[Rfam]
RNA sequence: UGGUAGAUGCACCCUGAUUUGCUAUCCCCGGCGAUGCUGGGGAUUUUUUAU
Numbered sequence: 001u002g003g004u005a006g007a008u009g010c011a012c013c014c015u016g017a018u019u020u021g022c023u024a025u026c027c028c029c030g031g032c033g034a035u036g037c038u039g040g041g042g043a044u045u046u047u048u049u050a051u
Stems, first nucleotide, its partner, number of pairs: 002013003025043008
RNA: Nitrogen stress-induced RNA 1